Rfam assigns this 76-nucleotide RNA from Alligator mississippiensis to the family "Mammalian CPEB3 ribozyme". NCBI's taxonomy places the organism under Eukaryota, Deuterostomia, Gnathostomata, Crocodylia, Alligator. The base pairs follow the family's consensus structure, which is taken from published work. A search with the family's covariance model found it, with a score of 40 bits. The literature on the family includes a 2006 paper in Science by Salehi-Ashtiani et al., "A genomewide search for ribozymes reveals an HDV-like sequence in the human CPEB3 gene".

[Rfam]
RNA sequence: UCUGCAAGUUCAAGGUCAUGGUGGAAGCACUAACAGUGUGUCCUUGUCAGAUUCCAAUAAAUCUGUGAAUUCUGCU
Numbered sequence: 001u002c003u004g005c006a007a008g009u010u011c012a013a014g015g016u017c018a019u020g021g022u023g024g025a026a027g028c029a030c031u032a033a034c035a036g037u038g039u040g041u042c043c044u045u046g047u048c049a050g051a052u053u054c055c056a057a058u059a060a061a062u063c064u065g066u067g068a069a070u071u072c073u074g075c076u
Stems, first nucleotide, its partner, number of pairs: 013044003017040001020076007027039003048065006